[Rfam]
RNA sequence: UAAUGAUAAAGGCAAACCUAUUGAAAGAUAGGGACGCAAAGCCUCAGGUCUACUGUUCAAUAAUUGAACAAAGAUUGCUAGGUUACCAUA
Numbered sequence: 001u002a003a004u005g006a007u008a009a010a011g012g013c014a015a016a017c018c019u020a021u022u023g024a025a026a027g028a029u030a031g032g033g034a035c036g037c038a039a040a041g042c043c044u045c046a047g048g049u050c051u052a053c054u055g056u057u058c059a060a061u062a063a064u065u066g067a068a069c070a071a072a073g074a075u076u077g078c079u080a081g082g083u084u085a086c087c088a089u090a
Stems, first nucleotide, its partner, number of pairs: 012037002017032006040084004046079002048075003055069004